[Rfam]
RNA sequence: CCCCGGGCUCCCGCCCGAGGCUAUGUUCUGUCGCUCCUUUGGAGCU
Numbered sequence: 001c002c003c004c005g006g007g008c009u010c011c012c013g014c015c016c017g018a019g020g021c022u023a024u025g026u027u028c029u030g031u032c033g034c035u036c037c038u039u040u041g042g043a044g045c046u
Stems, first nucleotide, its partner, number of pairs: 001020002004017005033045005
Rfam assigns this 46-nucleotide RNA from Rhodohalobacter barkolensis to the family "Acido-Lenti-1 RNA".
The base pairs follow the family's consensus structure, which is taken from published work.
The match comes from Rfam's covariance-model search (47 bits).
The family's RNA type in Rfam is small RNA.